[Rfam]
Shown here is a 77-nucleotide sequence from Alligator mississippiensis, a member of the family "Mammalian CPEB3 ribozyme". The base pairs follow the family's consensus structure, which is taken from published work. Taxonomically the source falls in Alligator (Eukaryota, Opisthokonta, Sauria, Archosauria).
RNA sequence: AGUCACAAAUUCGAAGCCACAGCAGAGGCACUCAUGGCAUGGCCUGUCAGAUUCCAACAAAAUCUGCAAAUUCUGCU
Numbered sequence: 001a002g003u004c005a006c007a008a009a010u011u012c013g014a015a016g017c018c019a020c021a022g023c024a025g026a027g028g029c030a031c032u033c034a035u036g037g038c039a040u041g042g043c044c045u046g047u048c049a050g051a052u053u054c055c056a057a058c059a060a061a062a063u064c065u066g067c068a069a070a071u072u073c074u075g076c077u
Base pairs, nucleotide, nucleotide: 013044016043017042018041021077022076023075024074025073026072027071028040048066049065050064051063052062053061